[Rfam]
RNA sequence: CCGUCCCGGCCCUUGCAGCUGCCCCCCUGUGCCGAGCUGUGGCGGGGGGGUGUCCGGGCGGGACACACAGUAACCCUAACCCUCUCCAUUUAGGAGGGCCCCCCCGAGGCUGGGGGUGGUCCUUAAAGGCAAGAGAGGACAAA
Dot-bracket structure: ..((((((.((.........(((.((((((...........)))))).))).....))))))))................((((((..(((..(((((((((((((....)))))).)))))))..)))...)))))).....
Numbered sequence: 001c002c003g004u005c006c007c008g009g010c011c012c013u014u015g016c017a018g019c020u021g022c023c024c025c026c027c028u029g030u031g032c033c034g035a036g037c038u039g040u041g042g043c044g045g046g047g048g049g050g051u052g053u054c055c056g057g058g059c060g061g062g063a064c065a066c067a068c069a070g071u072a073a074c075c076c077u078a079a080c081c082c083u084c085u086c087c088a089u090u091u092a093g094g095a096g097g098g099c100c101c102c103c104c105c106g107a108g109g110c111u112g113g114g115g116g117u118g119g120u121c122c123u124u125a126a127a128g129g130c131a132a133g134a135g136a137g138g139a140c141a142a143a
Stems, first nucleotide, its partner, number of pairs: 003064006010058002021051003025047006081138006089129003094124007101116006

Record summary:
This 143-nucleotide RNA sequence from Ornithorhynchus anatinus belongs to the Rfam family "Small Cajal body specific RNA 11". scaRNAs are a specific class of small nuclear RNAs which localise to the Cajal bodies and guide the modification of RNA polymerase II transcribed spliceosomal RNAs U1, U2, U4, U5 and U12. ACA57 belongs to the H/ACA box class of guide RNAs as it has the predicted hairpin-hinge-hairpin-tail structure, conserved H/ACA-box motifs and is found associated with GAR1. ACA57 is predicted to guide the pseudouridylation of the U5 spliceosomal RNA at position U43. A reference for the family is Darzacq et al. (2002), "Cajal body-specific small nuclear RNAs: a novel class of 2'-O-methylation and pseudouridylation guide RNAs", EMBO J. NCBI's taxonomy places the organism under Eukaryota, Chordata, Teleostomi, Ornithorhynchidae, Ornithorhynchus. Its family is annotated with Cajal body, RNA processing and nucleolus in the Gene Ontology.